[Rfam]
RNA sequence: UUUUAGCCCUGAUAGUAGUGGAAAUCCUAACAAAAAAAAACAACUAUGAUAAUAGUUGUUUUUUUUGUUAGAUUGUAACGAAUAGCAGGAACGAAG
Numbered sequence: 001u002u003u004u005a006g007c008c009c010u011g012a013u014a015g016u017a018g019u020g021g022a023a024a025u026c027c028u029a030a031c032a033a034a035a036a037a038a039a040a041c042a043a044c045u046a047u048g049a050u051a052a053u054a055g056u057u058g059u060u061u062u063u064u065u066u067g068u069u070a071g072a073u074u075g076u077a078a079c080g081a082a083u084a085g086c087a088g089g090a091a092c093g094a095a096g
Stems, first nucleotide, its partner, number of pairs: 009088003013084002018079002023074004029069011
Rfam assigns this 96-nucleotide RNA from Flavobacterium psychrophilum to the family "Flavo-1 RNA". The source organism's lineage runs through Bacteria, Bacteroidota, Flavobacteriales, Flavobacterium and Flavobacterium psychrophilum. The sequence is in the family's curated seed alignment.